[Rfam]
RNA sequence: CCCGGCGCUUCGCACCGGGCUGUAAUAUUUCGCCCCUUCGGGGCU
Numbered sequence: 001c002c003c004g005g006c007g008c009u010u011c012g013c014a015c016c017g018g019g020c021u022g023u024a025a026u027a028u029u030u031c032g033c034c035c036c037u038u039c040g041g042g043g044c045u
Stems, first nucleotide, its partner, number of pairs: 001019005007013002032044005
RNA: Acido-Lenti-1 RNA